[Rfam]
RNA sequence: GGAGGUAGGUCCUCCGGGGUCGCUCCGCAGGGGGCCCCAAACCACCGCAGGCUGCGUCGAGCUGCGGCCUCGGCACUCCACAGGCCGAGCCGG
Number, nucleotide and partner (000 for none) at each position: 001g015002g014003a013004g012005g011006u000007a000008g000009g000010u000011c005012c004013u003014c002015c001016g038017g037018g036019g035020u034021c033022g000023c000024u000025c032026c031027g000028c000029a000030g000031g026032g025033g021034g020035c019036c018037c017038c016039a000040a000041a000042c093043c092044a000045c067046c066047g065048c064049a063050g062051g000052c059053u000054g000055c000056g000057u000058c000059g052060a000061g000062c050063u049064g048065c047066g046067g045068c000069c089070u088071c087072g086073g085074c084075a000076c000077u000078c000079c000080a000081c000082a000083g000084g074085c073086c072087g071088a070089g069090c000091c000092g043093g042
Shown here is a 93-nucleotide sequence from Virgisporangium aurantiacum, a member of the family "Group II catalytic intron D1-D4-2".
From the family's description: Group II introns are found in rRNA, tRNA and mRNA of organelles in fungi, plants and protists, and also in mRNA in bacteria.
It scores 38 bits against the family's covariance model.
The literature on the family includes a 2001 paper in Trends Genet by Bonen and Vogel, "The ins and outs of group II introns".
Taxonomically the source falls in Virgisporangium (Bacteria, Actinomycetes, Micromonosporales, Micromonosporaceae).